A member of the RNA family "sul1 RNA" from a Rhodospirillales bacterium, 57 nucleotides long. Rfam classes the family as a riboswitch. Lineage of the source: Bacteria > Pseudomonadati > Pseudomonadota > Alphaproteobacteria > Rhodospirillales.
RNA sequence: CAUGGAGCCCGGUGAAAACCCGGGUGGCUAUUCCGGCCGCCAAUCCGCCGGGCAACG
Numbered sequence: 001c002a003u004g005g006a007g008c009c010c011g012g013u014g015a016a017a018a019c020c021c022g023g024g025u026g027g028c029u030a031u032u033c034c035g036g037c038c039g040c041c042a043a044u045c046c047g048c049c050g051g052g053c054a055a056c057g
Stems, first nucleotide, its partner, number of pairs: 006025001008024005013018001032052006
It scores 66 bits against the family's covariance model.